[Rfam]
Nucleotides: 099
Stems, first nucleotide, its partner, number of pairs: 003098004009092002013088007022079011
Number, partner (000 for none) and nucleotide at each position: 001000g002000a003098a004097g005096g006095c007000u008000c009092c010091a011000a012000c013088u014087u015086c016085c017084c018083u019082c020000a021000a022079a023078g024077g025076c026075u027074u028073c029072c030071a031070a032069u033000a034000u035000u036000c037000c038000a039000g040000c041000a042000g043000a044000c045000u046000a047000c048000u049000a050000u051000u052000g053000g054000c055000u056000u057000a058000g059000a060000u061000a062000u063000g064000g065000u066000a067000a068000c069032g070031u071030u072029g073028g074027g075026a076025g077024c078023c079022u080000g081000c082019g083018a084017g085016g086015g087014a088013a089000a090000c091010u092009g093000a094000a095006g096005c097004c098003u099000u
The record is a 99-nucleotide RNA from Vitis vinifera, which matches "MIR477 microRNA precursor family" in Rfam. Rfam's curators put it in the seed alignment. Pairs were carried over by alignment from the consensus structure, which was predicted with WAR. The source organism's lineage runs through Eukaryota, Magnoliopsida, Pentapetalae, Vitaceae and Vitis. Rfam 15.1 lists 63 matches to the family in 31 species. Gene Ontology terms of the family: miRNA-mediated post-transcriptional gene silencing and RISC complex. On this family, see Lu et al., Plant Cell 2005: "Novel and mechanical stress-responsive MicroRNAs in Populus trichocarpa that are absent from Arabidopsis".